[Rfam]
This 102-nucleotide RNA from Oceanobacillus profundus belongs to the Rfam family "Glycine riboswitch aptamer".
Its family is annotated with glycine biosynthetic process in the Gene Ontology.
NCBI's taxonomy places the organism under Bacteria, Bacillati, Bacillota, Caryophanales, Oceanobacillus.
RNA sequence: AUGAUUGUAUUGGGAGAGAGCGAAGUAUAUCGCCACCGAAGGAGCAAGUUCCAAAAAAACCAUUGGAAUUAAUCUCUCAGGUAAAAGCACCAAUACAGGACG
Number, nucleotide and partner (000 for none) at each position: 001a000002u000003g000004a000005u000006u097007g096008u095009a094010u093011u092012g091013g090014g000015a000016g000017a000018g000019a000020g033021c032022g031023a030024a000025g000026u000027a000028u000029a000030u023031c022032g021033c020034c000035a082036c081037c080038g078039a077040a000041g000042g076043a075044g074045c000046a000047a000048g069049u068050u067051c066052c065053a064054a063055a000056a000057a000058a000059a000060c000061c000062a000063u054064u053065g052066g051067a050068a049069u048070u000071a000072a000073u000074c044075u043076c042077u039078c038079a000080g037081g036082u035083a000084a000085a000086a000087g000088c000089a000090c013091c012092a011093a010094u009095a008096c007097a006098g000099g000100a000101c000102g000